[Rfam]
RNA sequence: AUGUAGUGAUUCUUAAGAGUGGGAUAGAAAUGAUAUUCUCAUAAAAUUUAUUUCGUUGAUCCCCAACUUGCAUUGUCUGUAGAAUUUCUUUUGAAAUUCUCUAUGUUGGGGCCCCGCCAACUUGCACAUUAUUGUAUGCUGACUUUUCGUCACCUUCUGUGUUGGGGCCCCGUUCCCCAACUUGCAUUGUCUGUAGAAUUUCUUUUUGAAAUUCUCUAUGUUGGGGCCCCGCCAACUUGCACAUUAUUGUAAGCUGACUUUCUGUCAGCUUCUGUGUUGGGGCCCCGCCAACUUGUAAAAACUUUAAAAACGAUCAUUUCUAUU
Number, nucleotide and partner (000 for none) at each position: 001a014002u000003g012004u000005a010006g000007u000008g000009a000010u005011u000012c003013u000014u001015a000016a000017g000018a000019g064020u000021g062022g061023g060024a000025u058026a000027g054028a053029a052030a051031u050032g049033a048034u000035a047036u046037u045038c000039u043040c000041a000042u000043a039044a000045a037046a036047u035048u033049u032050a031051u030052u029053u028054c027055g000056u000057u000058g025059a000060u023061c022062c021063c000064c019065a000066a194067c193068u000069u000070g190071c189072a188073u000074u186075g185076u184077c000078u000079g000080u000081a100082g099083a098084a097085u096086u095087u094088c093089u000090u000091u000092u000093g088094a087095a086096a085097u084098u083099c082100u081101c000102u000103a000104u000105g181106u180107u179108g178109g177110g176111g175112c172113c000114c000115c000116g000117c000118c000119a000120a000121c000122u000123u000124g000125c000126a000127c000128a000129u000130u000131a000132u000133u000134g000135u000136a000137u000138g000139c000140u000141g000142a000143c000144u000145u000146u000147u000148c000149g000150u000151c000152a000153c000154c000155u000156u000157c000158u000159g000160u000161g000162u000163u000164g000165g000166g000167g000168c000169c000170c000171c000172g112173u000174u000175c111176c110177c109178c108179a107180a106181c105182u000183u000184g076185c075186a074187u000188u072189g071190u070191c000192u000193g067194u066195a215196g214197a213198a212199u211200u210201u209202c208203u000204u000205u000206u000207u000208g202209a201210a200211a199212u198213u197214c196215u195216c000217u295218a294219u000220g292221u291222u290223g289224g288225g000226g286227c000228c000229c000230c000231g000232c000233c000234a000235a000236c000237u000238u000239g000240c000241a000242c000243a000244u000245u000246a000247u000248u000249g275250u274251a273252a000253g271254c000255u267256g266257a265258c264259u000260u000261u000262c000263u000264g258265u257266c256267a255268g000269c000270u000271u253272c000273u251274g250275u249276g000277u000278u000279g000280g000281g000282g000283c000284c000285c000286c226287g000288c224289c223290a222291a221292c220293u000294u218295g217296u000297a000298a000299a000300a000301a000302c000303u000304u000305u322306a321307a000308a319309a318310a000311c000312g000313a000314u000315c000316a000317u000318u309319u308320c000321u306322a305323u000324u000

A member of the RNA family "Staphylococcus sRNA 35 (srn_0335)" from Staphylococcus aureus, 324 nucleotides long.
Taxonomically the source falls in Staphylococcus aureus (Bacteria, Bacillati, Bacilli, Staphylococcaceae).
Pairs were carried over by alignment from the consensus structure, which was predicted with RNAfold.
On this family, see Mader et al., PLoS Genet 2016: "Staphylococcus aureus Transcriptome Architecture: From Laboratory to Infection-Mimicking Conditions".